Rfam assigns this 104-nucleotide RNA sequence from Macaca nemestrina to the family "Mitochondrial DNA control region secondary structure A".
RNA sequence: CACUAAUGUGCACACACACAUUACAAUAUAAUUCUAGUACUAACUCACUUAUAAUACUAUUAUGUAAUUCGUGCAUUACUGCUAGUCAGCAUGUAUAUUAUAUA
Numbered sequence: 001c002a003c004u005a006a007u008g009u010g011c012a013c014a015c016a017c018a019c020a021u022u023a024c025a026a027u028a029u030a031a032u033u034c035u036a037g038u039a040c041u042a043a044c045u046c047a048c049u050u051a052u053a054a055u056a057c058u059a060u061u062a063u064g065u066a067a068u069u070c071g072u073g074c075a076u077u078a079c080u081g082c083u084a085g086u087c088a089g090c091a092u093g094u095a096u097a098u099u100a101u102a103u104a
Stems, first nucleotide, its partner, number of pairs: 006094006017081002022036002025033003037057002041053002062076005